Background:
Rfam assigns this 61-nucleotide RNA from Thermosynechococcus vestitus to the family "Plastid-psbN 5UTR RNA". The literature on the family includes a 2023 paper in Plant Commun by Richter et al., "Retrograde signaling in plants: A critical review focusing on the GUN pathway and beyond". Rfam's curators write: Plastid psbN is a non-coding RNA (ncRNA) recognised in plastids. It was reported as a conserved 11 stem-loop in the prime untranslated region (5UTR) of psbN genes. It has been reported that the motif is retained in a subset of mature transcripts in barley, which can suggests a possible role in transcript alternative 5 prime processing. The family has 63 seed sequences and 2,345 matches in Rfam 15.1. Rfam classes the family as a cis-regulatory element.
RNA sequence: AAAGACCGCCAUCAAGGGAGUGGUCCCCCAACCGGGGGCGACUUUACCGUAUUCAGAGUUC
Numbered sequence: 001a002a003a004g005a006c007c008g009c010c011a012u013c014a015a016g017g018g019a020g021u022g023g024u025c026c027c028c029c030a031a032c033c034g035g036g037g038g039c040g041a042c043u044u045u046a047c048c049g050u051a052u053u054c055a056g057a058g059u060u061c
Stems, first nucleotide, its partner, number of pairs: 017045005023039005